[Rfam]
RNA sequence: GACAAUCGGGUCUGUGGUUGUAAGCCGAAGCCAGUCGCAGGCAAAGCGGUCCACGUAAGUCGUCCAAAGCGUCGAUGAGCAUGGUGCGGUUUAGAAGUAAGUCCGACCGGGAUUCCCCCGAGAGAGCAGCGUGAGGGCGCAGAAGCGCAGAGCAAAGCUCCUGUCGGCGAGUGUGGGGUCAAAAACCAGGUCAGCCGGUUAUC
Numbered sequence: 001g002a003c004a005a006u007c008g009g010g011u012c013u014g015u016g017g018u019u020g021u022a023a024g025c026c027g028a029a030g031c032c033a034g035u036c037g038c039a040g041g042c043a044a045a046g047c048g049g050u051c052c053a054c055g056u057a058a059g060u061c062g063u064c065c066a067a068a069g070c071g072u073c074g075a076u077g078a079g080c081a082u083g084g085u086g087c088g089g090u091u092u093a094g095a096a097g098u099a100a101g102u103c104c105g106a107c108c109g110g111g112a113u114u115c116c117c118c119c120g121a122g123a124g125a126g127c128a129g130c131g132u133g134a135g136g137g138c139g140c141a142g143a144a145g146c147g148c149a150g151a152g153c154a155a156a157g158c159u160c161c162u163g164u165c166g167g168c169g170a171g172u173g174u175g176g177g178g179u180c181a182a183a184a185a186c187c188a189g190g191u192c193a194g195c196c197g198g199u200u201a202u203c
Stems, first nucleotide, its partner, number of pairs: 001203002004200006012194003015188005028174001030172001031041001033091007050084002058076001060074001082181001103167005108120004124160004131153002138147003

raiA RNA: a 203-nucleotide RNA sequence.
Pairs were carried over by alignment from the consensus structure, which is taken from published work.